c-di-GMP-I riboswitch aptamer: a 121-nucleotide RNA from Capsulimonas corticalis.
[Rfam]
RNA sequence: GACAAACAAAGGCAAACUCGUCGAAAGGCGAGGACGCAAAGCUACGGGUCUACGGCAGAGACUUCGCCUCAUUUCGCGCACUAUGUUCGAAAUGUCCUGCUAUGACAGCCAAGCCGCCGCA
Numbered sequence: 001g002a003c004a005a006a007c008a009a010a011g012g013c014a015a016a017c018u019c020g021u022c023g024a025a026a027g028g029c030g031a032g033g034a035c036g037c038a039a040a041g042c043u044a045c046g047g048g049u050c051u052a053c054g055g056c057a058g059a060g061a062c063u064u065c066g067c068c069u070c071a072u073u074u075c076g077c078g079c080a081c082u083a084u085g086u087u088c089g090a091a092a093u094g095u096c097c098u099g100c101u102a103u104g105a106c107a108g109c110c111a112a113g114c115c116g117c118c119g120c121a
Base pairs, nucleotide, nucleotide: 012037013036017032018031019030020029021028022027041114042113043112046110047109048106049105050104055100056099057098058097
Notes: The match comes from Rfam's covariance-model search (70 bits). Pairs were carried over by alignment from the consensus structure, which is taken from published work. Rfam's curators write: GEMM was predicted in a large-scale screen for bacterial structured RNA regulatory elements.